[Rfam]
RNA: U4 spliceosomal RNA
Organism: Ascobolus immersus
RNA sequence: GUCCAAGUGCACGGGCAGUACGGGUAGCAGUGAAGAUUCGUCUGAGCUCUCGUUUUUGCUAGUUGAAAACUUAACUAUAAUUGACGCUCUCUAUUGACUUCGGUCGGUAGGGGAAUUUUUGGCCCAAACAGACGUUG
Numbered sequence: 001g002u003c004c005a006a007g008u009g010c011a012c013g014g015g016c017a018g019u020a021c022g023g024g025u026a027g028c029a030g031u032g033a034a035g036a037u038u039c040g041u042c043u044g045a046g047c048u049c050u051c052g053u054u055u056u057u058g059c060u061a062g063u064u065g066a067a068a069a070c071u072u073a074a075c076u077a078u079a080a081u082u083g084a085c086g087c088u089c090u091c092u093a094u095u096g097a098c099u100u101c102g103g104u105c106g107g108u109a110g111g112g113g114a115a116u117u118u119u120u121g122g123c124c125c126a127a128a129c130a131g132a133c134g135u136u137g
Stems, first nucleotide, its partner, number of pairs: 020053005026048003034043003088113011127136003